[Rfam]
RNA sequence: GGGACCCGUUCGCACAAUCCAGAUGGCAGGGACGGGGGAACCACGUUUCCACCGGGCCACCGCACGCGGUGACCCUCGGGGUUAAGUCGAUCUGACUAUCCAGUGCUAGACCUGCAGCAUCGUUCGCGAUGGCAGGCGUAGCCCAUAGGUAGAGGACGGCCGGGUGACUCCCAUCCGAACCCGACAGCUCACCCCGCAGGCAUGGGAGAGGCAAACA
Dot-bracket structure: ...........((....(((........))).(((((....(...................................)(((.....(((...................................................................)))..((((.......))))...))).........)))))...))................